A member of the RNA family "DUF805b RNA" from Chitinophaga sp. MD30, 36 nucleotides long. The family's RNA type in Rfam is cis-regulatory element.
[Rfam]
RNA sequence: CAGGUGGAUGCCGAAAAACCUCCAAUAGAGUAGGCA
Number, nucleotide and partner (000 for none) at each position: 001c000002a021003g020004g019005u018006g000007g000008a000009u000010g035011c034012c033013g000014a000015a000016a000017a000018a005019c004020c003021u002022c000023c000024a000025a000026u000027a000028g000029a000030g000031u000032a000033g012034g011035c010036a000